RNA sequence: GCCGAGCUGAGCAACGCAAGCUUGUAACCCGAGUGGGGGCCUUGAGGUGUUGGAACAUUGGCCCAAUAUGGCGGGUCGGGUUCGGUGUGGCUUUAUUCUGGCUUGCCCAUUCCAAGCCAGGAGUUGGGCCAUGUUGCUUGGGCGAAGGCUAUGGGCUUCAUGGUUCCUAGAGUGGAGGGCACUGCGUAAGGCUGGUUUCACAGAGCAACGAUUACUUCCCGCUCUGGCAGUGGAAGGAUAACGGGUCAGUGCCAUCCGGAUCCACUUUGGCCCGCUAGAUUAUCCCAAUUGAACCAAAACCUUU
Numbered sequence: 001g002c003c004g005a006g007c008u009g010a011g012c013a014a015c016g017c018a019a020g021c022u023u024g025u026a027a028c029c030c031g032a033g034u035g036g037g038g039g040c041c042u043u044g045a046g047g048u049g050u051u052g053g054a055a056c057a058u059u060g061g062c063c064c065a066a067u068a069u070g071g072c073g074g075g076u077c078g079g080g081u082u083c084g085g086u087g088u089g090g091c092u093u094u095a096u097u098c099u100g101g102c103u104u105g106c107c108c109a110u111u112c113c114a115a116g117c118c119a120g121g122a123g124u125u126g127g128g129c130c131a132u133g134u135u136g137c138u139u140g141g142g143c144g145a146a147g148g149c150u151a152u153g154g155g156c157u158u159c160a161u162g163g164u165u166c167c168u169a170g171a172g173u174g175g176a177g178g179g180c181a182c183u184g185c186g187u188a189a190g191g192c193u194g195g196u197u198u199c200a201c202a203g204a205g206c207a208a209c210g211a212u213u214a215c216u217u218c219c220c221g222c223u224c225u226g227g228c229a230g231u232g233g234a235a236g237g238a239u240a241a242c243g244g245g246u247c248a249g250u251g252c253c254a255u256c257c258g259g260a261u262c263c264a265c266u267u268u269g270g271c272c273c274g275c276u277a278g279a280u281u282a283u284c285c286c287a288a289u290u291g292a293a294c295c296a297a298a299a300c301c302u303u304u
Base pairs, nucleotide, nucleotide: 001040002039003038004023005022006021007020008019028037029036030035044303045302046301047300048299050297051296052295053294056291057290058288059287060286061284065280069277070276071275072274073273074272075271076270077269078263079262080261081260082259083258084257085256087255088254089253090252092251098249099248100247101246102245103244104243105242107237108236110235111234112233113232114231116228117227118226119225121224122223123222124221126166127165128164129163130162131161132160133159136156137155138154139153140152141150142149143148167172174219175218176217177216178215185210186209187208192203193202194201
Overview: A member of the RNA family "Plant signal recognition particle RNA" from Prunus yedoensis, 304 nucleotides long. On this family, see Batey et al., Science 2000: "Crystal structure of the ribonucleoprotein core of the signal recognition particle". Lineage of the source: Eukaryota > Pentapetalae > rosids > Amygdaloideae > Prunus yedoensis. Pairs were carried over by alignment from the consensus structure, which is taken from published work. By type it is a non-coding RNA gene. Gene Ontology terms of the family: SRP-dependent cotranslational protein targeting to membrane, signal sequence recognition and signal recognition particle, endoplasmic reticulum targeting.